[Rfam]
RNA sequence: AGUGACUUUCCAAGUGUCACAUAGUGGCAUAAUCAGAGUACAAUUAGGGCCAUGCCCAUACAUCACAUUGCCAGUGAUUACCCAAGGAAAGUGACA
Numbered sequence: 001a002g003u004g005a006c007u008u009u010c011c012a013a014g015u016g017u018c019a020c021a022u023a024g025u026g027g028c029a030u031a032a033u034c035a036g037a038g039u040a041c042a043a044u045u046a047g048g049g050c051c052a053u054g055c056c057c058a059u060a061c062a063u064c065a066c067a068u069u070g071c072c073a074g075u076g077a078u079u080a081c082c083c084a085a086g087g088a089a090a091g092u093g094a095c096a
Base pairs, nucleotide, nucleotide: 002095003094005092006091007090008089009088010087011086014081015080016079017077018076019075020074022070023069024061025060026056027055028054029053030052033048034047036045037044